A member of the RNA family "Small nucleolar RNA snoR60" from Papaver nudicaule, 72 nucleotides long. The base pairs follow the family's consensus structure, which was predicted with PFOLD. The source organism's lineage runs through Eukaryota, Tracheophyta, Euphyllophyta, Ranunculales and Papaver. Its Rfam clan is "SNORD101 clan". Gene Ontology terms of the family: nucleolus and RNA processing. Rfam classes the family as a C/D-box small nucleolar RNA. For this family Rfam cites "Fibrillarin genes encode both a conserved nucleolar protein and a novel small nucleolar RNA involved in ribosomal RNA methylation in Arabidopsis thaliana" (Barneche et al., J Biol Chem, 2000).

RNA sequence: UAGCAAAGGAUGAGAUAUACUCGGAUUCCCCUUCUUACAUUUAGGGUGAUGUAAAAUCGAGCUUCUGAUGCU
Numbered sequence: 001u002a003g004c005a006a007a008g009g010a011u012g013a014g015a016u017a018u019a020c021u022c023g024g025a026u027u028c029c030c031c032u033u034c035u036u037a038c039a040u041u042u043a044g045g046g047u048g049a050u051g052u053a054a055a056a057u058c059g060a061g062c063u064u065c066u067g068a069u070g071c072u
Stems, first nucleotide, its partner, number of pairs: 002072004